[Rfam]
RNA sequence: UUUAUUCACAGACUCCGAGCUUGUGUGCCUAAGUCAAUGCGACUUCACUGCUUCUUAUUUGUUUAAUUAAAUAGCUAAACAAUUAAAUUAAACCUAAACAAGCGGUUAGAUAAAUAAUAUUUUUGCUUGAUAUGGCAGCCAGCCAGUAAUUCUUUCAAUAUAAUAAAUUAAGGAAUUCAAUGGAUUAGCGAGAAAUUGCUUGUCCACUCGUAUUUAGAAAGGUGUCAAAUGCAAUCUAUU
Numbered sequence: 001u002u003u004a005u006u007c008a009c010a011g012a013c014u015c016c017g018a019g020c021u022u023g024u025g026u027g028c029c030u031a032a033g034u035c036a037a038u039g040c041g042a043c044u045u046c047a048c049u050g051c052u053u054c055u056u057a058u059u060u061g062u063u064u065a066a067u068u069a070a071a072u073a074g075c076u077a078a079a080c081a082a083u084u085a086a087a088u089u090a091a092a093c094c095u096a097a098a099c100a101a102g103c104g105g106u107u108a109g110a111u112a113a114a115u116a117a118u119a120u121u122u123u124u125g126c127u128u129g130a131u132a133u134g135g136c137a138g139c140c141a142g143c144c145a146g147u148a149a150u151u152c153u154u155u156c157a158a159u160a161u162a163a164u165a166a167a168u169u170a171a172g173g174a175a176u177u178c179a180a181u182g183g184a185u186u187a188g189c190g191a192g193a194a195a196u197u198g199c200u201u202g203u204c205c206a207c208u209c210g211u212a213u214u215u216a217g218a219a220a221g222g223u224g225u226c227a228a229a230u231g232c233a234a235u236c237u238a239u240u
Stems, first nucleotide, its partner, number of pairs: 003234001006231001011226003015222002019143003023139002026137004033131004148177008181206005187200005207217002
RNA: Molybdenum/Tungsten riboswitch aptamer (Moco RNA motif)